RNA: Clostridiales-1 RNA
Organism: Butyrivibrio sp. M55
RNA sequence: GUGAUAUAGCAGACAGAGGUCAAAAAGUCAUGUGCUUGCACAUAUGACUUUUUGACUUCGGGAUGCGAACAUACAUGAGGAAGUAGGCAGAUAUGCCGGAUUCCGAAUGUAUGUAGGAUUGCGGGAGCGAAGCGGAGCAAUCCGUAUAUCAC
Dot-bracket structure: ((((((...((....(((((((((((((((((((....)))))..))))))))))))))....))...((((((((..((((...((((....))))...))))..)))))))).(((((((....((...))...)))))))...))))))